Shown here is an 80-nucleotide RNA, a member of the family "RAGATH-18 RNA". It is annotated as a small RNA. From the family's description: Actinobacteria, Firmicutes, Fusobacteria, Thermotogae (1 example).

[Rfam]
RNA sequence: CUUGUGGACUGUUAUAUCAAAUGAGAGUAGACUUUACGCUUCGAAGUGUAAAGUCAAAAUCAGACAGGUUGAAACAAGAA
Numbered sequence: 001c002u003u004g005u006g007g008a009c010u011g012u013u014a015u016a017u018c019a020a021a022u023g024a025g026a027g028u029a030g031a032c033u034u035u036a037c038g039c040u041u042c043g044a045a046g047u048g049u050a051a052a053g054u055c056a057a058a059a060u061c062a063g064a065c066a067g068g069u070u071g072a073a074a075c076a077a078g079a080a
Stems, first nucleotide, its partner, number of pairs: 001078005009067005022062003030055003035050006